The record is a 74-nucleotide sequence from Ornithorhynchus anatinus, which matches "mir-92 microRNA precursor family" in Rfam. The family's consensus secondary structure was predicted with PFOLD. The match comes from Rfam's covariance-model search (52 bits). A reference for the family is Mourelatos et al. (2002), "miRNPs: a novel class of ribonucleoproteins containing numerous microRNAs", Genes Dev. Gene Ontology terms of the family: RISC complex and miRNA-mediated post-transcriptional gene silencing. Its Rfam clan is "mir-92 microRNA precursor clan". This family represents the microRNA precursor mir-92. Human miR-92 has two predicted hairpin precursor sequences: mir-92-1 on chromosome 13 and mir-92-2 on chromosome X. miR-92 has also been cloned from mouse embryonic stem cells.
RNA sequence: GUUUCUACUUGGGUUAGGAUCAGUUGCAGUGCUUUGUCUAUAGAAUUGCAUUUGUCCUGGCCUUUUGAGGUUAC
Numbered sequence: 001g002u003u004u005c006u007a008c009u010u011g012g013g014u015u016a017g018g019a020u021c022a023g024u025u026g027c028a029g030u031g032c033u034u035u036g037u038c039u040a041u042a043g044a045a046u047u048g049c050a051u052u053u054g055u056c057c058u059g060g061c062c063u064u065u066u067g068a069g070g071u072u073a074c
Stems, first nucleotide, its partner, number of pairs: 004070003011063004016058005022052003026049005032043002
Dot-bracket structure: ...(((....((((.(((((.(((.(((((.((........)).)))))))).))))).))))....)))....